Rfam assigns this 61-nucleotide RNA from Candidatus Fukatsuia symbiotica to the family "Pseudomonas sRNA P26". The organism belongs to Candidatus Fukatsuia, within Bacteria. About the family: This small RNA (sRNA) was computationally identified in the genome of the opportunistic pathogen Pseudomonas aeruginosa and its expression verified by northern blot analysis. The family's consensus secondary structure was predicted with RNAalifold. The match comes from Rfam's covariance-model search (48 bits).
RNA sequence: GUUUUUUAGUUUGCAGUCUGGCUUGAUAGGCUGACGGCUGGUGAUUCUUUGUCAUCAGCCU
Number, nucleotide and partner (000 for none) at each position: 001g000002u000003u000004u000005u000006u000007u000008a000009g000010u000011u000012u000013g000014c033015a032016g031017u030018c029019u000020g000021g000022c000023u000024u000025g000026a000027u000028a000029g018030g017031c016032u015033g014034a000035c000036g060037g059038c058039u057040g056041g055042u054043g053044a052045u051046u000047c000048u000049u000050u000051g045052u044053c043054a042055u041056c040057a039058g038059c037060c036061u000